[Rfam]
This 72-nucleotide sequence from Piscinibacter aquaticus belongs to the Rfam family "SAH (S-adenosyl-L-homocysteine) riboswitch aptamer". The family's consensus secondary structure is taken from published work. Gene Ontology terms of the family: S-adenosylhomocysteine metabolic process and regulation of gene expression. A reference for the family is Wang et al. (2008), "Riboswitches that sense S-adenosylhomocysteine and activate genes involved in coenzyme recycling", Mol Cell.
RNA sequence: CGUUCCGAGGAGCGUUGCAAGGCCUGCAGGCCCCAGGCUCGGAAACUUCUUCUGCAACGGCGCUCACCCGCA
Numbered sequence: 001c002g003u004u005c006c007g008a009g010g011a012g013c014g015u016u017g018c019a020a021g022g023c024c025u026g027c028a029g030g031c032c033c034c035a036g037g038c039u040c041g042g043a044a045a046c047u048u049c050u051u052c053u054g055c056a057a058c059g060g061c062g063c064u065c066a067c068c069c070g071c072a
Stems, first nucleotide, its partner, number of pairs: 003044006021032004